[Rfam]
Background
This 74-nucleotide RNA sequence from Escherichia fergusonii belongs to the Rfam family "Salmonella enterica sRNA STnc40". By type it is a small RNA.
RNA sequence: GCAGUGCCAUGGCCGCCUGCAGUAAUUAAAUAUUCACACAUAAGGUAAAAGGCGCAGGAUUCUGCGCCUUUUUU
Numbered sequence: 001g002c003a004g005u006g007c008c009a010u011g012g013c014c015g016c017c018u019g020c021a022g023u024a025a026u027u028a029a030a031u032a033u034u035c036a037c038a039c040a041u042a043a044g045g046u047a048a049a050a051g052g053c054g055c056a057g058g059a060u061u062c063u064g065c066g067c068c069u070u071u072u073u074u
Base pairs, nucleotide, nucleotide: 002019003018004017006013007012047072048071049070050069051068052067053066054065055064056063057062
It is one of the family's seed sequences. The source organism's lineage runs through Bacteria, Pseudomonadati, Gammaproteobacteria, Enterobacterales and Escherichia fergusonii.